[Rfam]
RNA: Bacterial large subunit ribosomal RNA, nucleotides 2079 to 2666
RNA sequence: GCCGCUACGGGACGAAAAGACCCUAUGAAGCUUUACUGCAGCUUGAUAUUGUGAAGAGUUUUUGAUAUUAGAGAAUAUGUGGGAGACUAGGAAGACGAUGCGCCAGUGUUGUUGGAGUCGACAGUGGAAUACCACAAUUUCAAUGACUUUUUGCUUACAUAUAACCAUAUAUCUGGUGUAUGGACAGUGUUAGGUGGGCAGUUUGACUGGGGCGGUUGCCUCCCAAAAUGUAACGGAGGCGUUCAAAGGUACACUUAGCGCGAAUGGAAAUCGCGCAGAAAGGGUAAUACUAUAUGUGUGCUUGAUUGUGAGACAAACAAGUCGACCAAGUAAGAAAUUAGGAUAUAGUGAUCCGGUGGUUCCAAAUGGAAGGGCCAUCGCUCAACGGAUAAAAGCUACUCUAGGGAUAACAGGGUAAUAAUCUCCAAGAGUUCAUAUCGACGAGAUUGUUUGCUACCUCGAUGUCGACUCAUCUUAUCCUGGGGGUGAAGCAGCUCCCAAGGGUUCGGCUGUUCGCCGAUUAAAAAGAUACGUGAGUUGGGUUCAAACCGUCGUGAGACAGGUUGGUCUCUAUCUAUAGCGGCUGCA
Numbered sequence: 001g002c003c004g005c006u007a008c009g010g011g012a013c014g015a016a017a018a019g020a021c022c023c024u025a026u027g028a029a030g031c032u033u034u035a036c037u038g039c040a041g042c043u044u045g046a047u048a049u050u051g052u053g054a055a056g057a058g059u060u061u062u063u064g065a066u067a068u069u070a071g072a073g074a075a076u077a078u079g080u081g082g083g084a085g086a087c088u089a090g091g092a093a094g095a096c097g098a099u100g101c102g103c104c105a106g107u108g109u110u111g112u113u114g115g116a117g118u119c120g121a122c123a124g125u126g127g128a129a130u131a132c133c134a135c136a137a138u139u140u141c142a143a144u145g146a147c148u149u150u151u152u153g154c155u156u157a158c159a160u161a162u163a164a165c166c167a168u169a170u171a172u173c174u175g176g177u178g179u180a181u182g183g184a185c186a187g188u189g190u191u192a193g194g195u196g197g198g199c200a201g202u203u204u205g206a207c208u209g210g211g212g213c214g215g216u217u218g219c220c221u222c223c224c225a226a227a228a229u230g231u232a233a234c235g236g237a238g239g240c241g242u243u244c245a246a247a248g249g250u251a252c253a254c255u256u257a258g259c260g261c262g263a264a265u266g267g268a269a270a271u272c273g274c275g276c277a278g279a280a281a282g283g284g285u286a287a288u289a290c291u292a293u294a295u296g297u298g299u300g301c302u303u304g305a306u307u308g309u310g311a312g313a314c315a316a317a318c319a320a321g322u323c324g325a326c327c328a329a330g331u332a333a334g335a336a337a338u339u340a341g342g343a344u345a346u347a348g349u350g351a352u353c354c355g356g357u358g359g360u361u362c363c364a365a366a367u368g369g370a371a372g373g374g375c376c377a378u379c380g381c382u383c384a385a386c387g388g389a390u391a392a393a394a395g396c397u398a399c400u401c402u403a404g405g406g407a408u409a410a411c412a413g414g415g416u417a418a419u420a421a422u423c424u425c426c427a428a429g430a431g432u433u434c435a436u437a438u439c440g441a442c443g444a445g446a447u448u449g450u451u452u453g454c455u456a457c458c459u460c461g462a463u464g465u466c467g468a469c470u471c472a473u474c475u476u477a478u479c480c481u482g483g484g485g486g487u488g489a490a491g492c493a494g495c496u497c498c499c500a501a502g503g504g505u506u507c508g509g510c511u512g513u514u515c516g517c518c519g520a521u522u523a524a525a526a527a528g529a530u531a532c533g534u535g536a537g538u539u540g541g542g543u544u545c546a547a548a549c550c551g552u553c554g555u556g557a558g559a560c561a562g563g564u565u566g567g568u569c570u571c572u573a574u575c576u577a578u579a580g581c582g583g584c585u586g587c588a
Base pairs, nucleotide, nucleotide: 001584002583003582004581005580006579007578010576011575012574014571015570022405023404024403025402027401028400029397030396031395032394033393035202036201037200038199042194043193044192045191046190047189048188051154052153053152054151055150056149057148058147059146060145062143063142064141065140067138068137078136079135080134081133082132085119086118087117094113095112096111097110098109099108100107101106158182159181160180164177165176166175167174205217206216207215208214218240219239220238221237222236223235241386243343244342249301250300251299252298253297254296255281256280258276259275260274261273262272263271282291283290306329307328308327312323313322314321331340332339333338354380355379356378357377358376359375360374362373363372414455415454416453418452419449420448421447422446423445424444425443429439430438466541467539468538469537470536471533472530473529474528475527476526479504480503482499483498484497485496486495487494506520507519508518509517510516547565548564549563550562551560552559553558